[Rfam]
RNA: mir-217 microRNA precursor family
RNA sequence: UUGAUGUUGUAGAUACUGCAUCAGGAACUGAUUGGAUCCCAGGGAGCAGCCAUCAGUUCCUAAUGCACUGCCUUCGGCAUCUA
Numbered sequence: 001u002u003g004a005u006g007u008u009g010u011a012g013a014u015a016c017u018g019c020a021u022c023a024g025g026a027a028c029u030g031a032u033u034g035g036a037u038c039c040c041a042g043g044g045a046g047c048a049g050c051c052a053u054c055a056g057u058u059c060c061u062a063a064u065g066c067a068c069u070g071c072c073u074u075c076g077g078c079a080u081c082u083a
Base pairs, nucleotide, nucleotide: 017067018066019065020064021063023061024060025059026058027057028056029055030054031053033052034051035050